A member of the RNA family "Purine riboswitch aptamer" from Paenibacillus sp. 32O-W, 100 nucleotides long.

[Rfam]
Nucleotides: 100
Base pairs, nucleotide, nucleotide: 019085020084021083022082023081024080025079029049030048031047032046033045034044060074061073062072063071
Number, partner (000 for none) and nucleotide at each position: 001000u002000u003000c004000a005000u006000a007000u008000g009000c010000a011000a012000a013000g014000c015000u016000g017000u018000g019085g020084u021083u022082c023081g024080u025079a026000u027000a028000u029049c030048c031047u032046c033045a034044a035000u036000a037000a038000u039000a040000c041000g042000g043000u044034u045033u046032g047031a048030g049029g050000g051000u052000u053000u054000c055000u056000a057000c058000a059000a060074g061073g062072g063071a064000c065000c066000g067000u068000a069000a070000a071063u072062c073061c074060c075000g076000g077000g078000c079025u080024a081023c082022g083021a084020a085019u086000a087000g088000g089000a090000g091000g092000a093000u094000u095000c096000g097000u098000g099000u100000a